[Rfam]
RNA sequence: GACUCGGACCUAUGUGGUCAGAACGCCCAAAUCCUGUCAGGACCGGAAGGUAGCAGCAGUACGGGAUGCUUUUGACAGGCGUAGACUCCGGGUCACUU
Numbered sequence: 001g002a003c004u005c006g007g008a009c010c011u012a013u014g015u016g017g018u019c020a021g022a023a024c025g026c027c028c029a030a031a032u033c034c035u036g037u038c039a040g041g042a043c044c045g046g047a048a049g050g051u052a053g054c055a056g057c058a059g060u061a062c063g064g065g066a067u068g069c070u071u072u073u074g075a076c077a078g079g080c081g082u083a084g085a086c087u088c089c090g091g092g093u094c095a096c097u098u
Base pairs, nucleotide, nucleotide: 004091005090006089007088010084011083012082013081014080015077017076018075019074020073021072022071026065027064028063034059035058036057037056042051043050044049
The family of this 98-nucleotide RNA sequence from Synechococcus elongatus is "Bacterial small signal recognition particle RNA". The sequence is in the family's curated seed alignment. Pairs were carried over by alignment from the consensus structure, which is taken from published work. From the family's description: The signal recognition particle (SRP) is a universally conserved ribonucleoprotein involved in the co-translational targeting of proteins to membranes.